The family of this 225-nucleotide RNA sequence from Modestobacter sp. DSM 44400 is "Actinobacteria sRNA Ms_IGR-5". The source organism's lineage runs through Bacteria, Actinomycetes, Geodermatophilales, Geodermatophilaceae and Modestobacter. The match comes from Rfam's covariance-model search (82 bits). Rfam classes the family as a small RNA. Pairs were carried over by alignment from the consensus structure.
RNA sequence: ACACGAGAGAGGAGGUGGUCCGAAAUUGCAUACGUCCAGGACACGUGAGGUGGCUGUCCGCUAGCCGCCGUCCAGAUGGGCCGCCCGUUCAGACUCUGCUCGAUCUCGACAGGGCCUGAGCGACGGCAUCCCGCGCGUCCGUCGUACGGCGGCGGGCGAGAAACGGACAGUCACCCGACCCCCGGGCCGCCGACCAAUGUCCAGUCGGCCCGCGAGUCGCUCGAC
Dot-bracket structure: .............((((((.................................))))))((((.((.((((............................................................................)))).)).)))).................((((.(.((((((...(((.........))))))))).).))))......
Numbered sequence: 001a002c003a004c005g006a007g008a009g010a011g012g013a014g015g016u017g018g019u020c021c022g023a024a025a026u027u028g029c030a031u032a033c034g035u036c037c038a039g040g041a042c043a044c045g046u047g048a049g050g051u052g053g054c055u056g057u058c059c060g061c062u063a064g065c066c067g068c069c070g071u072c073c074a075g076a077u078g079g080g081c082c083g084c085c086c087g088u089u090c091a092g093a094c095u096c097u098g099c100u101c102g103a104u105c106u107c108g109a110c111a112g113g114g115c116c117u118g119a120g121c122g123a124c125g126g127c128a129u130c131c132c133g134c135g136c137g138u139c140c141g142u143c144g145u146a147c148g149g150c151g152g153c154g155g156g157c158g159a160g161a162a163a164c165g166g167a168c169a170g171u172c173a174c175c176c177g178a179c180c181c182c183c184g185g186g187c188c189g190c191c192g193a194c195c196a197a198u199g200u201c202c203a204g205u206c207g208g209c210c211c212g213c214g215a216g217u218c219g220c221u222c223g224a225c
Stems, first nucleotide, its partner, number of pairs: 014058006059158004064153002067150004176219004181214001183212006192206003